[Rfam]
RNA: Plastid-clpP 5UTR RNA
Organism: Durio zibethinus
Nucleotides: 069
Stems, first nucleotide, its partner, number of pairs: 003022002009016002043068003051060003
Number, partner (000 for none) and nucleotide at each position: 001000a002000a003022u004021u005000u006000g007000g008000c009016u010015c011000a012000a013000a014000a015010g016009a017000a018000a019000a020000a021004a022003g023000a024000g025000a026000a027000g028000c029000a030000g031000a032000u033000a034000u035000a036000u037000u038000u039000u040000a041000u042000a043068c044067c045066c046000a047000a048000u049000a050000a051060g052059u053058a054000u055000c056000a057000a058053u059052a060051u061000g062000u063000a064000g065000u066045g067044g068043g069000g